[Rfam]
Annotation:
This 61-nucleotide RNA sequence from Olea europaea belongs to the Rfam family "Plastid-psbA-2 3UTR RNA". Plastid psbA-2 is a non-coding RNA (ncRNA) present in plastids. It was identified in inverted repeat sequences in the 3 prime untranslate region (3UTR) of photosystem II quinone-binding protein (psbA). The base pairs follow the family's consensus structure, which was predicted with LocARNA. The family's RNA type in Rfam is cis-regulatory element.
RNA sequence: AUAAAGGAGCAAUAACGCCCUCUUGAUAGAACAAGAAAGAGUUUAUUGCUCCUUUAUUUUC
Numbered sequence: 001a002u003a004a005a006g007g008a009g010c011a012a013u014a015a016c017g018c019c020c021u022c023u024u025g026a027u028a029g030a031a032c033a034a035g036a037a038a039g040a041g042u043u044u045a046u047u048g049c050u051c052c053u054u055u056a057u058u059u060u061c
Stems, first nucleotide, its partner, number of pairs: 001057015016041001018039001021036005